[Rfam]
RNA sequence: UACCUCGAUGCACCGUCCAGGACGGGGGUGGGGGACCCACUUCGGCGCGCCGCGGUCGGCCGCAGCGCGCCUCGGGGUGAAGCCGCGAGCGCGCGGCCGGGGCACCGAUCGUCCCGAACCCGACAGCUCACCUCGCCGGCGGCGGAUCGGGAGUUCAU
Dot-bracket structure: ..(((((...............)))))((((((....(...................................)(((.....((((......))))..((((.........))))...))).........))))))......................
The family of this 158-nucleotide sequence from Geodermatophilus ruber is "c-di-AMP riboswitch aptamer (ydaO/yuaA leader)". Taxonomically the source falls in Geodermatophilus (Bacteria, Bacillati, Geodermatophilales, Geodermatophilaceae).